[Rfam]
RNA: U5 spliceosomal RNA
RNA sequence: AUACUCUGGUUUCUUUUCAUAUCAUAUAAAUCUUUCGUCUUUUACUAAAGAUUUCCAUGGAGAGGAACAUUUAUGAGUUUCUAGG
Numbered sequence: 001a002u003a004c005u006c007u008g009g010u011u012u013c014u015u016u017u018c019a020u021a022u023c024a025u026a027u028a029a030a031u032c033u034u035u036c037g038u039c040u041u042u043u044a045c046u047a048a049a050g051a052u053u054u055c056c057a058u059g060g061a062g063a064g065g066a067a068c069a070u071u072u073a074u075g076a077g078u079u080u081c082u083a084g085g
Stems, first nucleotide, its partner, number of pairs: 003078004009068011028054008
Dot-bracket structure: ..((((..(((((((((((........((((((((...........))))))))...)))))))))))......)))).......